[Rfam]
RNA sequence: GAAUGAAAAAAGCAGGGUAAUGUGCACAGAAAUUGAUUUGGGUCUCUAGGUCUGCCUUCUCUCAUGCAUUUCGGCUUUGAUUUGGGGGCAUGGUUCUACAGCAAAACG
Numbered sequence: 001g002a003a004u005g006a007a008a009a010a011a012g013c014a015g016g017g018u019a020a021u022g023u024g025c026a027c028a029g030a031a032a033u034u035g036a037u038u039u040g041g042g043u044c045u046c047u048a049g050g051u052c053u054g055c056c057u058u059c060u061c062u063c064a065u066g067c068a069u070u071u072c073g074g075c076u077u078u079g080a081u082u083u084g085g086g087g088g089c090a091u092g093g094u095u096c097u098a099c100a101g102c103a104a105a106a107c108g
Stems, first nucleotide, its partner, number of pairs: 012025003040091001042089003050081003054075003
Annotation:
The family of this 108-nucleotide RNA sequence from Rhododendron williamsianum is "Small nucleolar RNA snoR100". It scores 87 bits against the family's covariance model. On this family, see Marker et al., Curr Biol 2002: "Experimental RNomics: identification of 140 candidates for small non-messenger RNAs in the plant Arabidopsis thaliana". It is annotated as an H/ACA-box small nucleolar RNA.